[Rfam]
This 91-nucleotide sequence from Phascolarctos cinereus belongs to the Rfam family "Small nucleolar SNORD12/SNORD106". It is annotated as a C/D-box small nucleolar RNA. Rfam links the family to the GO terms nucleolus and RNA processing. Clan: SNORD12 clan.
RNA sequence: ACUGGUGUGUAUGAUGAUUAAACUUUUUUCCCCAUCAGAUCGACCAUGUUGAUCCUAACUAUUCUUUGCCAGUUUUUUCUGACACACCAGU
Number, nucleotide and partner (000 for none) at each position: 001a091002c090003u089004g088005g087006u086007g085008u084009g083010u000011a000012u000013g000014a000015u000016g000017a000018u000019u000020a000021a000022a000023c000024u000025u000026u000027u000028u000029u000030c000031c000032c000033c000034a000035u000036c000037a000038g000039a000040u000041c000042g000043a000044c000045c000046a000047u000048g000049u000050u000051g000052a000053u000054c000055c000056u000057a000058a000059c000060u000061a000062u000063u000064c000065u000066u000067u000068g000069c000070c000071a000072g000073u000074u000075u000076u000077u000078u000079c000080u000081g000082a000083c009084a008085c007086a006087c005088c004089a003090g002091u001